About this RNA:
A member of the RNA family "Small nucleolar RNA U54" from Hordeum vulgare, 80 nucleotides long. By type it is a C/D-box small nucleolar RNA. Rfam's curators write: U54 is a C/D box small nucleolar RNA, which acts as a methylation guide for 18S ribosomal RNA in plants. It scores 69 bits against the family's covariance model. The family is grouped with related families in Rfam's "U54 clan".
RNA sequence: AGCUCAGUGAUUUCAGACCAAUACUUUGGUUAUAUACGCUUAUUCUGAAUAUGUUGAUGUAAAGUAAAUUUGUGAGAGCU
Number, nucleotide and partner (000 for none) at each position: 001a080002g079003c078004u077005c076006a000007g000008u000009g000010a000011u000012u000013u000014c000015a000016g000017a000018c000019c000020a000021a000022u000023a000024c000025u000026u000027u000028g000029g000030u000031u000032a000033u000034a000035u000036a000037c000038g000039c000040u000041u000042a000043u000044u000045c000046u000047g000048a000049a000050u000051a000052u000053g000054u000055u000056g000057a000058u000059g000060u000061a000062a000063a000064g000065u000066a000067a000068a000069u000070u000071u000072g000073u000074g000075a000076g005077a004078g003079c002080u001